The record is a 95-nucleotide sequence from Citrobacter freundii, which matches "Tryptophan operon leader" in Rfam. A reference for the family is Kolter and Yanofsky (1982), "Attenuation in amino acid biosynthetic operons", Annu Rev Genet. Lineage of the source: Bacteria > Enterobacterales > Enterobacteriaceae > Citrobacter > Citrobacter freundii complex. At least 6 amino acid operons are known to be regulated by attenuation. In each a leader sequence of 150-200 bp is found upstream of the first gene in the operon. This leader sequence can assume two different secondary structures known as the terminator and the anti-terminator structure.
RNA sequence: CACGGUUGGUGGCGCACUUCCUGAUUUCGGGCAGUGUCUUACGUCCGCAAUAUGCAACCAGAUACCCGGCCCGCCAAAUGAGCGGGCUUUUUUUU
Numbered sequence: 001c002a003c004g005g006u007u008g009g010u011g012g013c014g015c016a017c018u019u020c021c022u023g024a025u026u027u028c029g030g031g032c033a034g035u036g037u038c039u040u041a042c043g044u045c046c047g048c049a050a051u052a053u054g055c056a057a058c059c060a061g062a063u064a065c066c067c068g069g070c071c072c073g074c075c076a077a078a079u080g081a082g083c084g085g086g087c088u089u090u091u092u093u094u095u
Base pairs, nucleotide, nucleotide: 009042010041011040012039014037015036016035017034018033020031021030022029023028068088069087070086071085072084073083074082075080